[Rfam]
RNA: Small nucleolar RNA Z105
Organism: Setaria italica
RNA sequence: CUGGCAUAAUGAGGAAAAUCCUUAUUUUUCUGAUAUAGUUGAUGAUAAAUACCUCCUACUCAUUCUGA
Numbered sequence: 001c002u003g004g005c006a007u008a009a010u011g012a013g014g015a016a017a018a019u020c021c022u023u024a025u026u027u028u029u030c031u032g033a034u035a036u037a038g039u040u041g042a043u044g045a046u047a048a049a050u051a052c053c054u055c056c057u058a059c060u061c062a063u064u065c066u067g068a
Stems, first nucleotide, its partner, number of pairs: 006063002009060001028044001030041001